[Rfam]
RNA sequence: AGCUGCGCUGGGCUAGAUCGGGAAACUCAUCAAAUUUUUAUGAAUAACCGAGAAAGCUUCUUCUUCCGAUGGCGUGCCGCCCCCUUUCGGGUACACUACGUUAGCGGAUUACAAAGGAAGCAGGGCCCUCAAAUCUUGUAUUUACUCGGAGAUUUCAUCACAUCACCAGUGCGGCUUUACUA
Numbered sequence: 001a002g003c004u005g006c007g008c009u010g011g012g013c014u015a016g017a018u019c020g021g022g023a024a025a026c027u028c029a030u031c032a033a034a035u036u037u038u039u040a041u042g043a044a045u046a047a048c049c050g051a052g053a054a055a056g057c058u059u060c061u062u063c064u065u066c067c068g069a070u071g072g073c074g075u076g077c078c079g080c081c082c083c084c085u086u087u088c089g090g091g092u093a094c095a096c097u098a099c100g101u102u103a104g105c106g107g108a109u110u111a112c113a114a115a116g117g118a119a120g121c122a123g124g125g126c127c128c129u130c131a132a133a134u135c136u137u138g139u140a141u142u143u144a145c146u147c148g149g150a151g152a153u154u155u156c157a158u159c160a161c162a163u164c165a166c167c168a169g170u171g172c173g174g175c176u177u178u179a180c181u182a
Stems, first nucleotide, its partner, number of pairs: 056126003060123002063120005070113002077107004082091003093101002
Rfam assigns this 182-nucleotide RNA from Bacteroidales bacterium KHT7 to the family "Bacteroidales-1 6S-Bacteroidales RNA suggested". Lineage of the source: Bacteria > Pseudomonadati > Bacteroidota > Bacteroidia > Bacteroidales. Bacteroidales-1 was first reported in a comparative genomics-based approach of genome and metagenome sequences from Weinberg et al. 2010 In a high-resolution transcriptome map study of Bacteroides thetaiotaomicron, Ryan et al. 2020 report this sRNA as 6S RNA homologue of Bacteroides, in the study they obtain evidence of small product RNAs (pRNAs) related to 6S function. The literature on the family includes a 2020 paper in Nat Commun by Ryan et al., "A high-resolution transcriptome map identifies small RNA regulation of metabolism in the gut microbe Bacteroides thetaiotaomicron". Rfam classes the family as a small RNA.